[Rfam]
RNA sequence: CUCUUAUCAAGAGUGGCAGAGGGACUGGCCCGAUGAAGCCCGGCAACCUUCAAACAACGGUUUGAAAGGUGCUAAUUCCUGCAAAGCAUAUGCUUUGGGAGAUGAGAG
Numbered sequence: 001c002u003c004u005u006a007u008c009a010a011g012a013g014u015g016g017c018a019g020a021g022g023g024a025c026u027g028g029c030c031c032g033a034u035g036a037a038g039c040c041c042g043g044c045a046a047c048c049u050u051c052a053a054a055c056a057a058c059g060g061u062u063u064g065a066a067a068g069g070u071g072c073u074a075a076u077u078c079c080u081g082c083a084a085a086g087c088a089u090a091u092g093c094u095u096u097g098g099g100a101g102a103u104g105a106g107a108g
Stems, first nucleotide, its partner, number of pairs: 001108008013041001015040003021031003025081001027079002042073004047069002049066004077100001082097006
Dot-bracket structure: ((((((((....(.(((...(((.[.[[)))......))))((((.((((((..........)))).))))))...(]].]((((((....))))))..)))))))))
A member of the RNA family "SAM riboswitch aptamer (S box leader)" from Alkalibacillus haloalkaliphilus, 108 nucleotides long.
Rfam's curators write: The SAM riboswitch is found upstream of a number of genes which code for proteins involved in methionine or cysteine biosynthesis in Gram-positive bacteria.
Pairs were carried over by alignment from the consensus structure, which is taken from published work.
It scores 95 bits against the family's covariance model.